[Rfam]
RNA sequence: AUCCAGAAACGGGGUUUUGGGGGCGAGAUGAGAUAUUUCAUACAAAACCAACUGGCCUGCAAAGUCCCGCCUUUGGAU
Numbered sequence: 001a002u003c004c005a006g007a008a009a010c011g012g013g014g015u016u017u018u019g020g021g022g023g024c025g026a027g028a029u030g031a032g033a034u035a036u037u038u039c040a041u042a043c044a045a046a047a048c049c050a051a052c053u054g055g056c057c058u059g060c061a062a063a064g065u066c067c068c069g070c071c072u073u074u075g076g077a078u
Stems, first nucleotide, its partner, number of pairs: 003076005010069004015064005021058004026053002029050002
A member of the RNA family "mir-193 microRNA precursor family" from Callorhinchus milii, 78 nucleotides long. Rfam links the family to the GO terms RISC complex and miRNA-mediated post-transcriptional gene silencing. Lineage of the source: Eukaryota > Opisthokonta > Bilateria > Gnathostomata > Callorhinchus. It scores 66 bits against the family's covariance model. The base pairs follow the family's consensus structure, which was predicted with RNAalifold.